Small nucleolar RNA snoR8a: a 90-nucleotide sequence from Zingiber officinale. Rfam links the family to the GO terms nucleolus and RNA processing. It is annotated as a C/D-box small nucleolar RNA. A search with the family's covariance model found it, with a score of 87 bits. The family has 7 seed sequences and 956 matches in Rfam 15.1. Pairs were carried over by alignment from the consensus structure, which was predicted with WAR. NCBI's taxonomy places the organism under Eukaryota, Streptophyta, Spermatophyta, Liliopsida, Zingiber.

RNA sequence: AUUGAUGCUGUGAUUAUACAAAAUUCCUCGUUCUGAAUGCUGUAGAAUUGGCAUGACAGACCAAUUUACACCCAUAGAAUAUGAGCACCA
Numbered sequence: 001a002u003u004g005a006u007g008c009u010g011u012g013a014u015u016a017u018a019c020a021a022a023a024u025u026c027c028u029c030g031u032u033c034u035g036a037a038u039g040c041u042g043u044a045g046a047a048u049u050g051g052c053a054u055g056a057c058a059g060a061c062c063a064a065u066u067u068a069c070a071c072c073c074a075u076a077g078a079a080u081a082u083g084a085g086c087a088c089c090a
Stems, first nucleotide, its partner, number of pairs: 003090002006087002